The record is a 99-nucleotide RNA from Flavimobilis marinus, which matches "TPP riboswitch aptamer (THI element)" in Rfam.
RNA sequence: CGCUCUGACGCGGGGUGCCGUGGAUCGACAUGGCUGAGAUCACACCCGUUGAACCUGAUCUAGUUCGUACUAGCGAAGGGAACGUCGAGGCAUGCCCAC
Number, nucleotide and partner (000 for none) at each position: 001c000002g000003c000004u000005c000006u087007g086008a085009c084010g083011c048012g047013g046014g045015g000016u042017g034018c033019c032020g031021u030022g000023g000024a000025u000026c000027g000028a000029c000030a021031u020032g019033g018034c017035u000036g000037a000038g000039a000040u000041c000042a016043c000044a000045c014046c013047c012048g011049u000050u000051g000052a000053a000054c079055c078056u077057g000058a000059u000060c073061u072062a071063g070064u000065u000066c000067g000068u000069a000070c063071u062072a061073g060074c000075g000076a000077a056078g055079g054080g000081a000082a000083c010084g009085u008086c007087g006088a000089g000090g000091c000092a000093u000094g000095c000096c000097c000098a000099c000
Overview:
The base pairs follow the family's consensus structure, which is taken from published work.